Bacterial RNase P class A: a 362-nucleotide RNA from Odoribacter splanchnicus. It is annotated as a ribozyme.
[Rfam]
Nucleotides: 362
Base pairs, nucleotide, nucleotide: 001358002357003356004355005354006353007352008351009350010349011347012321013320014319015318016317017316018315020037021036023034024033025032026031042345043344044343046342047341048340049339050338051222052221053220054219058256059255060254061253063218064217065216066215067214068082069081070080071079072078083098085096086095087094088093099213100212103211104210105209106208107207119154120153121150122149123148124147125146126145128143162180163179164178165177166176167175182204183202184201185200186199187198188197189196190195226278227277228276229275237268238267239266240265241264247261248260249259250258251257286303287302288301289300290299291298292297
Number, partner (000 for none) and nucleotide at each position: 001358a002357u003356a004355g005354c006353a007352g008351g009350c010349c011347g012321u013320u014319c015318u016317a017316u018315c019000g020037c021036u022000g023034u024033c025032c026031c027000u028000u029000c030000g031026g032025g033024g034023a035000a036021a037020g038000a039000g040000g041000a042345a043344a044343g045000u046342c047341c048340g049339g050338g051222c052221a053220a054219c055000a056000c057000a058256g059255g060254g061253c062000a063218u064217c065216g066215u067214g068082c069081u070080u071079c072078u073000u074000a075000a076000c077000g078072g079071g080070a081069a082068g083098a084000u085096g086095u087094u088093c089000g090000u091000g092000a093088g094087g095086g096085c097000a098083u099213a100212g101000u102000a103211a104210c105209g106208u107207a108000a109000c110000a111000g112000a113000a114000a115000a116000a117000a118000a119154c120153c121150g122149u123148u124147u125146c126145a127000c128143g129000a130000a131000g132000a133000u134000u135000c136000g137000u138000u139000u140000u141000c142000g143128c144000u145126u146125g147124a148123a149122a150121u151000a152000a153120g154119g155000g156000u157000g158000a159000a160000a161000a162180g163179g164178u165177g166176g167175g168000g169000u170000a171000a172000g173000a174000g175167c176166c177165c178164a179163c180162c181000g182204g183202u184201a185200c186199u187198g188197c189196a190195g191000g192000u193000a194000a195190c196189u197188g198187u199186g200185g201184u202183a203000g204182c205000c206000g207107u208106a209105c210104g211103u212100c213099u214067c215066a216065c217064g218063a219054g220053u221052u222051g223000c224000a225000a226278g227277g228276c229275c230000a231000u232000g233000u234000a235000u236000a237268c238267c239266g240265g241264c242000g243000c244000a245000u246000u247261c248260g249259a250258u251257u252000a253061g254060c255059c256058c257251g258250a259249u260248c261247g262000a263000u264241g265240c266239c267238g268237g269000g270000g271000g272000g273000u274000a275229g276228g277227c278226u279000g280000c281000u282000a283000g284000a285000g286303c287302u288301g289300c290299a291298a292297a293000g294000u295000g296000a297292u298291u299290u300289g301288c302287a303286g304000a305000g306000u307000a308000g309000a310000u311000a312000a313000a314000u315018g316017a317016u318015a319014g320013a321012a322000a323000c324000c325000g326000u327000a328000a329000g330000g331000u332000a333000c334000a335000g336000a337000a338050c339049c340048c341047g342046g343044c344043u345042u346000a347011c348000a349010g350009g351008c352007c353006u354005g355004c356003u357002a358001u359000u360000u361000u362000u